Shown here is a 116-nucleotide RNA sequence from Thorsellia anophelis, a member of the family "Group II catalytic intron D1-D4-2". Pairs were carried over by alignment from the consensus structure. From the family's description: Group II introns are found in rRNA, tRNA and mRNA of organelles in fungi, plants and protists, and also in mRNA in bacteria. A reference for the family is Bonen and Vogel (2001), "The ins and outs of group II introns", Trends Genet. The family has 144 seed sequences and 1,231 matches in Rfam 15.1.

Nucleotides: 116
Stems, first nucleotide, its partner, number of pairs: 001015005016041006023034003045116002048091006054080002057077003061073003097113006
Number, partner (000 for none) and nucleotide at each position: 001015g002014g003013u004012g005011g006000u007000a008000g009000g010000c011005c012004c013003a014002c015001c016041a017040g018039u019038a020037u021036c022000g023034g024033c025032u026000a027000g028000c029000a030000a031000g032025a033024g034023u035000a036021g037020g038019u039018a040017c041016u042000a043000a044000a045116u046115c047000a048091g049090c050089c051088c052087u053086a054080g055079c056000u057077g058076c059075a060000a061073u062072a063071c064000u065000u066000a067000a068000g069000a070000u071063g072062u073061g074000u075059u076058g077057u078000g079055g080054u081000g082000a083000g084000c085000g086053u087052a088051g089050g090049g091048u092000c093000a094000a095000a096000a097113g098112g099111c100110g101109a102108u103000a104000u105000a106000a107000a108102a109101u110100c111099g112098u113097c114000a115046g116045a